[Rfam]
RNA sequence: AAGACGAUGUGUAACUGGCGAAACACGGAUUACCGUGAGGGAGCACAUAUAAGUCGUAGCCGUUCGCCUGGGCAGAGGUA
Numbered sequence: 001a002a003g004a005c006g007a008u009g010u011g012u013a014a015c016u017g018g019c020g021a022a023a024c025a026c027g028g029a030u031u032a033c034c035g036u037g038a039g040g041g042a043g044c045a046c047a048u049a050u051a052a053g054u055c056g057u058a059g060c061c062g063u064u065c066g067c068c069u070g071g072g073c074a075g076a077g078g079u080a
Stems, first nucleotide, its partner, number of pairs: 007048006015040002017068005025036004057075001059073003